[Rfam]
RNA sequence: GACAGGUUGUAUGAUGAUUUUUUUGAGUGAUCCAUCGACUGAAAUUCAUGAUGAUUCUCAAGAUAUCUGACAACCUGUC
Numbered sequence: 001g002a003c004a005g006g007u008u009g010u011a012u013g014a015u016g017a018u019u020u021u022u023u024u025g026a027g028u029g030a031u032c033c034a035u036c037g038a039c040u041g042a043a044a045u046u047c048a049u050g051a052u053g054a055u056u057c058u059c060a061a062g063a064u065a066u067c068u069g070a071c072a073a074c075c076u077g078u079c
Stems, first nucleotide, its partner, number of pairs: 002078007009068001013032003017028001035054003039050001
RNA: Small nucleolar RNA SNORD71
Organism: Liparis tanakae